Rfam assigns this 45-nucleotide RNA sequence from Lentivirus humimdef2 to the family "ribosomal frameshift site".
The family's consensus secondary structure is taken from published work.
The literature on the family includes a 1987 paper in Nature by Guyader et al., "Genome organization and transactivation of the human immunodeficiency virus type 2".
The organism belongs to Lentivirus humimdef2, within Viruses.

RNA sequence: UUGGGCCCACGGGGAAAGAAGCCUCGCAACUUCCCCGUGACCCAA
Numbered sequence: 001u002u003g004g005g006c007c008c009a010c011g012g013g014g015a016a017a018g019a020a021g022c023c024u025c026g027c028a029a030c031u032u033c034c035c036c037g038u039g040a041c042c043c044a045a
Base pairs, nucleotide, nucleotide: 002044003043004042005041008039009038010037011036012035013034014033015032016031018030021027022026
Dot-bracket structure: .((((..(((((((((.(..((...))..)))))))))).)))).